[Rfam]
RNA: permuted transfer-messenger RNA
RNA sequence: GGCGCUAAACGGGCGUAUGGAAUAGGCAGAGUGGACCCGGGGGCAGUACCCGGCGCCUCCACCAGUUUCCGGGAGCGGUGCCAAGGGCUUCGAUGGAGCCGGCGCCGCCCCGCCGACGGGGGCGAACCAGGAUCGACACCUGCAGUAAAGAUGCGAUCGGCGCCCGGCAUGGUACCGCCGUUAUCGGGCCAAAAUCAUAGUUGCCAACGACAACUAUGCUGAGGCUCGUCUCGCCGCGUAA
Numbered sequence: 001g002g003c004g005c006u007a008a009a010c011g012g013g014c015g016u017a018u019g020g021a022a023u024a025g026g027c028a029g030a031g032u033g034g035a036c037c038c039g040g041g042g043g044c045a046g047u048a049c050c051c052g053g054c055g056c057c058u059c060c061a062c063c064a065g066u067u068u069c070c071g072g073g074a075g076c077g078g079u080g081c082c083a084a085g086g087g088c089u090u091c092g093a094u095g096g097a098g099c100c101g102g103c104g105c106c107g108c109c110c111c112g113c114c115g116a117c118g119g120g121g122g123c124g125a126a127c128c129a130g131g132a133u134c135g136a137c138a139c140c141u142g143c144a145g146u147a148a149a150g151a152u153g154c155g156a157u158c159g160g161c162g163c164c165c166g167g168c169a170u171g172g173u174a175c176c177g178c179c180g181u182u183a184u185c186g187g188g189c190c191a192a193a194a195u196c197a198u199a200g201u202u203g204c205c206a207a208c209g210a211c212a213a214c215u216a217u218g219c220u221g222a223g224g225c226u227c228g229u230c231u232c233g234c235c236g237c238g239u240a241a
Base pairs, nucleotide, nucleotide: 001164002163003162004161005160015154016153017152018151027142028141029140031139032138033137037053038052039051040050041049054124055123056122057121058120059119060118165180166179167178168177